RNA: 6S / SsrS RNA
Organism: Bacillus thermotolerans
RNA sequence: UAUCAGCUGCGUUGUACGUAACAUUAAUUAAGUUUUAACCUUUAAGCUGAAAUAGGGAGUUUUAACAUUGAAGAAGGAAUAUCAUGCCUCUUCCUUAGAGGACGAUAGGAGAUCUUCUGCGAACACCCACUUGUUGGAGUGUGGUUUUAAAACUUCAUUAAACGUACGGCAAUCGCGGCACUUAA
Number, nucleotide and partner (000 for none) at each position: 001u000002a183003u000004c000005a000006g179007c178008u177009g176010c175011g174012u172013u171014g170015u169016a000017c168018g167019u166020a000021a000022c000023a000024u000025u000026a000027a000028u000029u000030a000031a000032g153033u152034u151035u150036u000037a147038a146039c144040c143041u000042u000043u000044a000045a000046g000047c000048u000049g000050a000051a000052a000053u000054a000055g128056g127057g126058a000059g124060u123061u122062u121063u000064a000065a000066c000067a000068u000069u000070g117071a116072a115073g114074a113075a000076g000077g000078a000079a000080u000081a000082u105083c104084a000085u000086g000087c101088c100089u099090c098091u097092u000093c000094c000095u000096u000097a091098g090099a089100g088101g087102a000103c000104g083105a082106u000107a000108g000109g000110a000111g000112a000113u074114c073115u072116u071117c070118u000119g000120c000121g062122a061123a060124c059125a000126c057127c056128c055129a000130c000131u000132u000133g000134u000135u000136g000137g000138a000139g000140u000141g000142u000143g040144g039145u000146u038147u037148u000149a000150a035151a034152a033153c032154u000155u000156c000157a000158u000159u000160a000161a000162a000163c000164g000165u000166a019167c018168g017169g015170c014171a013172a012173u000174c011175g010176c009177g008178g007179c006180a000181c000182u000183u002184a000185a000